[Rfam]
RNA sequence: GAUCAAUGAAGAGGCUUACACGACGGUCUUCUGAACAAAUAAUUGUUUUAUCAAAUUGACUGUAGAUAAUAUUACGUGUGCUGAGAUC
Numbered sequence: 001g002a003u004c005a006a007u008g009a010a011g012a013g014g015c016u017u018a019c020a021c022g023a024c025g026g027u028c029u030u031c032u033g034a035a036c037a038a039a040u041a042a043u044u045g046u047u048u049u050a051u052c053a054a055a056u057u058g059a060c061u062g063u064a065g066a067u068a069a070u071a072u073u074a075c076g077u078g079u080g081c082u083g084a085g086a087u088c
Stems, first nucleotide, its partner, number of pairs: 001088004

The record is an 88-nucleotide RNA from Diploscapter pachys, which matches "Small nucleolar RNA sn3071" in Rfam. For this family Rfam cites "Organization of the Caenorhabditis elegans small non-coding transcriptome: genomic features, biogenesis, and expression" (Deng et al., Genome Res, 2006). Rfam links the family to the GO terms nucleolus and RNA processing. The match comes from Rfam's covariance-model search (45 bits).